c-di-AMP riboswitch aptamer (ydaO/yuaA leader): a 132-nucleotide sequence from Clostridium chromiireducens. The match comes from Rfam's covariance-model search (105 bits). Its family is annotated with regulation of gene expression and cyclic-di-AMP binding in the Gene Ontology. Lineage of the source: Bacteria > Bacillati > Eubacteriales > Clostridiaceae > Clostridium.
RNA sequence: AUAUUAGUAACGCUGAAUCUUUUUGAACGGGAGAACCAAUUUUUGGGGUGAAUCUUAUUUUAGGAUAAGUAGGGUUAUUUUUCUUCAAUCCGAAUCCGUCAGCUAAUCUCGUAAGCGUUGAAGAGAAGUUUU
Numbered sequence: 001a002u003a004u005u006a007g008u009a010a011c012g013c014u015g016a017a018u019c020u021u022u023u024u025g026a027a028c029g030g031g032a033g034a035a036c037c038a039a040u041u042u043u044u045g046g047g048g049u050g051a052a053u054c055u056u057a058u059u060u061u062a063g064g065a066u067a068a069g070u071a072g073g074g075u076u077a078u079u080u081u082u083c084u085u086c087a088a089u090c091c092g093a094a095u096c097c098g099u100c101a102g103c104u105a106a107u108c109u110c111g112u113a114a115g116c117g118u119u120g121a122a123g124a125g126a127a128g129u130u131u132u
Stems, first nucleotide, its partner, number of pairs: 011117004018026002027112006037045002046097003054069004072091004